[Rfam]
RNA sequence: GGGAGGUUGGCGAGGGACGUCUCACUCGCCAACCCGGUCAGAUCCGGAAGGAAGCAGCCGUAACGAGACCGAACGGGUCUUCGUCCAACCUCCUACU
Numbered sequence: 001g002g003g004a005g006g007u008u009g010g011c012g013a014g015g016g017a018c019g020u021c022u023c024a025c026u027c028g029c030c031a032a033c034c035c036g037g038u039c040a041g042a043u044c045c046g047g048a049a050g051g052a053a054g055c056a057g058c059c060g061u062a063a064c065g066a067g068a069c070c071g072a073a074c075g076g077g078u079c080u081u082c083g084u085c086c087a088a089c090c091u092c093c094u095a096c097u
Stems, first nucleotide, its partner, number of pairs: 003092005009085006018075003022071001025067004035060004043052003
Shown here is a 97-nucleotide RNA sequence from Allobosea sp. Root483D1, a member of the family "Bacterial small signal recognition particle RNA". The base pairs follow the family's consensus structure, which is taken from published work. By type it is a non-coding RNA gene. Gene Ontology terms of the family: signal recognition particle, plasma membrane targeting and SRP-dependent cotranslational protein targeting to membrane, signal sequence recognition. About the family: The signal recognition particle (SRP) is a universally conserved ribonucleoprotein involved in the co-translational targeting of proteins to membranes. The match comes from Rfam's covariance-model search (56 bits).